[Rfam]
RNA sequence: AUGAGGGCGACCGAGUGUGGAGAAGAAGCGUGGAGCGAAGCUGCGAGCCGAGGAACACGAACCGGAUAGAAGGCGGUGCCGACUAGGGCGAGCGGGCCAGAAACCGCGAAGCUCUCGUGAUCAAGGGUCAGGCGGCGUAGAUUCGGCGGCUGUGCAGUGAAGGAGUGCGUUC
Numbered sequence: 001a002u003g004a005g006g007g008c009g010a011c012c013g014a015g016u017g018u019g020g021a022g023a024a025g026a027a028g029c030g031u032g033g034a035g036c037g038a039a040g041c042u043g044c045g046a047g048c049c050g051a052g053g054a055a056c057a058c059g060a061a062c063c064g065g066a067u068a069g070a071a072g073g074c075g076g077u078g079c080c081g082a083c084u085a086g087g088g089c090g091a092g093c094g095g096g097c098c099a100g101a102a103a104c105c106g107c108g109a110a111g112c113u114c115u116c117g118u119g120a121u122c123a124a125g126g127g128u129c130a131g132g133c134g135g136c137g138u139a140g141a142u143u144c145g146g147c148g149g150c151u152g153u154g155c156a157g158u159g160a161a162g163g164a165g166u167g168c169g170u171u172c
Base pairs, nucleotide, nucleotide: 001016002015005012006011028172030170031169032168036163040158041157042156043155044154045153046151047150048149049148050147062146063145064144065143066142067141073138074137075136077134078133079132080131081129082128083127086114087113088112089111092107093106094105095104